RNA sequence: GCCACAUGAUGUGAACAAGAUGGCAUUAGCACUAUGUGCAAAGAUGACUCUCAUCUAUCACCCGAGACUGAUGGCU
Numbered sequence: 001g002c003c004a005c006a007u008g009a010u011g012u013g014a015a016c017a018a019g020a021u022g023g024c025a026u027u028a029g030c031a032c033u034a035u036g037u038g039c040a041a042a043g044a045u046g047a048c049u050c051u052c053a054u055c056u057a058u059c060a061c062c063c064g065a066g067a068c069u070g071a072u073g074g075c076u
Stems, first nucleotide, its partner, number of pairs: 001075004029039004

Background
Small nucleolar RNA SNORD83: a 76-nucleotide sequence from Danionella cerebrum. NCBI's taxonomy places the organism under Eukaryota, Eumetazoa, Euteleostomi, Cyprinoidei, Danionella. By type it is a C/D-box small nucleolar RNA. The family has 7 seed sequences and 1,393 matches in Rfam 15.1. The family's consensus secondary structure was predicted with PFOLD.